[Rfam]
Annotation:
Rfam assigns this 146-nucleotide RNA sequence from Nonomuraea maritima to the family "c-di-AMP riboswitch aptamer (ydaO/yuaA leader)". It scores 86 bits against the family's covariance model. The pairing is the family consensus, mapped onto this sequence.

RNA sequence: GGUGUGCGACCGCCGAAUCCGCGCCUGCGGAACCGGGGACCCACCUUCUCCUGGGGUGAAUCGGAUACCAGCGCCAAGCUGCUCCCGUAGGGCACUUCCACGCCCGAACCCGACAGCUAACCCGGUAGGCGGCAUGGAAGCAAGGA
Numbered sequence: 001g002g003u004g005u006g007c008g009a010c011c012g013c014c015g016a017a018u019c020c021g022c023g024c025c026u027g028c029g030g031a032a033c034c035g036g037g038g039a040c041c042c043a044c045c046u047u048c049u050c051c052u053g054g055g056g057u058g059a060a061u062c063g064g065a066u067a068c069c070a071g072c073g074c075c076a077a078g079c080u081g082c083u084c085c086c087g088u089a090g091g092g093c094a095c096u097u098c099c100a101c102g103c104c105c106g107a108a109c110c111c112g113a114c115a116g117c118u119a120a121c122c123c124g125g126u127a128g129g130c131g132g133c134a135u136g137g138a139a140g141c142a143a144g145g146a
Stems, first nucleotide, its partner, number of pairs: 011131004018031003032126006042053002054111003062087003090105004